A member of the RNA family "Small nucleolar RNA snoR111" from Vigna angularis, 126 nucleotides long. Gene Ontology terms of the family: nucleolus and RNA processing. A search with the family's covariance model found it, with a score of 99 bits. The base pairs follow the family's consensus structure, which was predicted with WAR. On this family, see Marker et al., Curr Biol 2002: "Experimental RNomics: identification of 140 candidates for small non-messenger RNAs in the plant Arabidopsis thaliana". Rfam classes the family as an H/ACA-box small nucleolar RNA. The family has 6 seed sequences and 533 matches in Rfam 15.1.
RNA sequence: AUGAGAAUGAAGAGACUGUUGAAAGUGUCUCUGCCAUUAUUUGAACAUUGAGGUAUAAAAAAUAGGCGAGUCAUCGUUUCGGUCGCCCUUUUUAUGGUUGGCGAAUCGAUUGUUCCUCGUCUACAU
Number, nucleotide and partner (000 for none) at each position: 001a000002u000003g000004a000005g000006a038007a037008u036009g035010a000011a000012g031013a030014g029015a028016c027017u000018g000019u000020u000021g000022a000023a000024a000025g000026u000027g016028u015029c014030u013031c012032u000033g000034c000035c009036a008037u007038u006039a000040u000041u000042u000043g000044a000045a000046c000047a000048u000049u000050g000051a000052g000053g000054u000055a000056u000057a000058a000059a000060a000061a000062a000063u000064a000065g122066g121067c000068g118069a117070g116071u000072c000073a110074u109075c108076g107077u000078u000079u000080c000081g000082g000083u104084c103085g102086c101087c100088c000089u000090u097091u096092u000093u000094a000095u000096g091097g090098u000099u000100g087101g086102c085103g084104a083105a000106u000107c076108g075109a074110u073111u000112g000113u000114u000115c000116c070117u069118c068119g000120u000121c066122u065123a000124c000125a000126u000